Notes:
Shown here is a 104-nucleotide RNA sequence from Luteipulveratus mongoliensis, a member of the family "Guanidine-I riboswitch aptamer". Pairs were carried over by alignment from the consensus structure.

RNA sequence: ACUGGACGUGGCUAGGGUUCCGCUCCGCCUUUGGCGGGGGCUGGUCCGAGCGCCACGACCCACCAAGCGUGGUGGGCAUCUGACGGGACAAAAGCCCGGUCGAG
Number, nucleotide and partner (000 for none) at each position: 001a000002c000003u000004g000005g000006a000007c057008g056009u055010g054011g053012c052013u000014a000015g047016g046017g000018u000019u000020c044021c043022g041023c039024u038025c037026c036027g035028c034029c000030u000031u000032u000033g000034g028035c027036g026037g025038g024039g023040g000041c022042u000043g021044g020045u000046c016047c015048g000049a000050g000051c000052g012053c011054c010055a009056c008057g007058a000059c076060c075061c074062a073063c072064c071065a070066a000067g000068c000069g000070u065071g064072g063073u062074g061075g060076g059077c000078a000079u099080c000081u102082g000083a000084c000085g097086g096087g095088a000089c000090a000091a000092a000093a000094g000095c087096c086097c085098g000099g079100u000101c000102g081103a000104g000
About this RNA
Its family is annotated with regulation of gene expression in the Gene Ontology. Taxonomically the source falls in Luteipulveratus (Bacteria, Bacillati, Micrococcales, Dermacoccaceae). This family represents a conserved RNA structure found upstream of the ykkC and yxkD genes in Bacillus subtilis and related genes in other bacteria.